Rfam assigns this 98-nucleotide RNA from Denitromonas iodatirespirans to the family "SAH (S-adenosyl-L-homocysteine) riboswitch aptamer". The family's consensus secondary structure is taken from published work. For this family Rfam cites "Riboswitches that sense S-adenosylhomocysteine and activate genes involved in coenzyme recycling" (Wang et al., Mol Cell, 2008). It scores 52 bits against the family's covariance model. The organism belongs to Denitromonas, within Bacteria.
[Rfam]
RNA sequence: CUUUCCGAGGAGCGCUGCGAGGUCGUCAGGUCGCCCUGACCGACGCCCCAGGCUCGGAAGCCGCCGCUGGCGGUGAGAAUCAACGGCGCUCACGACAU
Numbered sequence: 001c002u003u004u005c006c007g008a009g010g011a012g013c014g015c016u017g018c019g020a021g022g023u024c025g026u027c028a029g030g031u032c033g034c035c036c037u038g039a040c041c042g043a044c045g046c047c048c049c050a051g052g053c054u055c056g057g058a059a060g061c062c063g064c065c066g067c068u069g070g071c072g073g074u075g076a077g078a079a080u081c082a083a084c085g086g087c088g089c090u091c092a093c094g095a096c097a098u
Stems, first nucleotide, its partner, number of pairs: 002060007021047002024045004